[Rfam]
RNA sequence: GCUGGCAUGAUGAUGAUGACUCUUUUGCCGUUUACCCAACUGAGUUUUUUUGAUGAGUAACUUUUAUCUGAAGUGCCAGC
Numbered sequence: 001g002c003u004g005g006c007a008u009g010a011u012g013a014u015g016a017u018g019a020c021u022c023u024u025u026u027g028c029c030g031u032u033u034a035c036c037c038a039a040c041u042g043a044g045u046u047u048u049u050u051u052g053a054u055g056a057g058u059a060a061c062u063u064u065u066a067u068c069u070g071a072a073g074u075g076c077c078a079g080c
Stems, first nucleotide, its partner, number of pairs: 001080007
RNA: Small nucleolar RNA SNORD87